[Rfam]
RNA sequence: UGGCACCCAACGUGGCUUUGGAUACGAGGGAAAAGAGUGAGAAAGAGGGCGCAUGAAAAGGGCCAAUGAUUAAAGUGAGACAAAAUCCCUCCGACCGCCACGGGAGCCUACUGCAUCGCCGUUGGGGGUAAGUUGUGAGUCCGAAAUGGGACAAGAAUUAAGUCAACAUCAACUCUAUGUAGGACAGUUGAAGGAGGCUUUAAAGACAUGGGGAGUAAAGGUUAAAGGUGGUGACUUGUUUAAGUUUUUCAACUUUAUAAAAGACACUUGCCCUU
Dot-bracket structure: .....(((...(((........)))..))).......(.......)........................................((.(....((....(((.......)))....)..)...).)).......((..((((...)))).)).....((((((...............................))).)))......((((((((..((((((.......))))))......))))))))........((.(.(....).).))

Annotation: The record is a 275-nucleotide RNA from Mandrillus leucophaeus, which matches "Mason-Pfizer monkey virus packaging signal" in Rfam. For this family Rfam cites "Mutational analysis of the predicted secondary RNA structure of the Mason-Pfizer monkey virus packaging signal" (Mustafa et al., Virus Res, 2004). The family's RNA type in Rfam is cis-regulatory element. A search with the family's covariance model found it, with a score of 211 bits.